Shown here is a 92-nucleotide sequence from Lentibacillus halodurans, a member of the family "TPP riboswitch aptamer (THI element)". Vitamin B(1) in its active form thiamin pyrophosphate (TPP) is an essential coenzyme that is synthesised by coupling of pyrimidine and thiazole moieties in bacteria. A search with the family's covariance model found it, with a score of 70 bits.
[Rfam]
RNA sequence: AAAAACUGCUAGGGGUGCCGAAAUGGCUGAGAACUUGUCCCUUUGAACCUAAUCCGGAUAAUACCGGCGAAGGAAAGCAGACAGAGGAUCGC
Numbered sequence: 001a002a003a004a005a006c007u008g009c010u011a012g013g014g015g016u017g018c019c020g021a022a023a024u025g026g027c028u029g030a031g032a033a034c035u036u037g038u039c040c041c042u043u044u045g046a047a048c049c050u051a052a053u054c055c056g057g058a059u060a061a062u063a064c065c066g067g068c069g070a071a072g073g074a075a076a077g078c079a080g081a082c083a084g085a086g087g088a089u090c091g092c
Stems, first nucleotide, its partner, number of pairs: 006080005011042004017027004048073003054067004